[Rfam]
RNA sequence: GCUCGCAAUAAACAUUCAUUGCUGUCGGUGGGUUUCCAUGGCAAUAGCUCGCUGACCAAUGAAUGAAGACUGCGG
Number, nucleotide and partner (000 for none) at each position: 001g000002c000003u075004c074005g073006c072007a071008a000009u000010a000011a000012a000013c065014a064015u063016u062017c061018a060019u059020u058021g057022c000023u000024g056025u055026c054027g053028g052029u051030g050031g000032g048033u047034u046035u000036c000037c000038a000039u000040g000041g000042c000043a000044a000045u000046a034047g033048c032049u000050c030051g029052c028053u027054g026055a025056c024057c021058a020059a019060u018061g017062a016063a015064u014065g013066a000067a000068g000069a000070c000071u007072g006073c005074g004075g003
RNA: mir-181 microRNA precursor family
Organism: Tetraodon nigroviridis